[Rfam]
RNA: Small nucleolar RNA SNORA71
RNA sequence: UCCUGCACUGGACCGAGGGUGCGGGCUGCCUGCGCCCUGGUGCUGGAUGGUGCGGGGAGAGCAGCUGCUGAGGGCAUUUCCCGUUUGGAGGGCCCACCCCUGUCUCGUCCACAACCUGAGCGUCCUCGCCUG
Numbered sequence: 001u002c003c004u005g006c007a008c009u010g011g012a013c014c015g016a017g018g019g020u021g022c023g024g025g026c027u028g029c030c031u032g033c034g035c036c037c038u039g040g041u042g043c044u045g046g047a048u049g050g051u052g053c054g055g056g057g058a059g060a061g062c063a064g065c066u067g068c069u070g071a072g073g074g075c076a077u078u079u080c081c082c083g084u085u086u087g088g089a090g091g092g093c094c095c096a097c098c099c100c101u102g103u104c105u106c107g108u109c110c111a112c113a114a115c116c117u118g119a120g121c122g123u124c125c126u127c128g129c130c131u132g
Stems, first nucleotide, its partner, number of pairs: 001057009014045002018041001020039002023037004067129001069128007083115003086111002088108001090106003